[Rfam]
RNA: SucA RNA motif
RNA sequence: GUGCAAUCCGCUAUCCGGUCAGGCCGUGUCGCGGAAGGUUUUGAUAACCCGCCAAUUUCGCGAAGCGCGAAGAAAGGUGAGCA
Numbered sequence: 001g002u003g004c005a006a007u008c009c010g011c012u013a014u015c016c017g018g019u020c021a022g023g024c025c026g027u028g029u030c031g032c033g034g035a036a037g038g039u040u041u042u043g044a045u046a047a048c049c050c051g052c053c054a055a056u057u058u059c060g061c062g063a064a065g066c067g068c069g070a071a072g073a074a075a076g077g078u079g080a081g082c083a
Stems, first nucleotide, its partner, number of pairs: 002083003007035005016026004037049004050079004057071006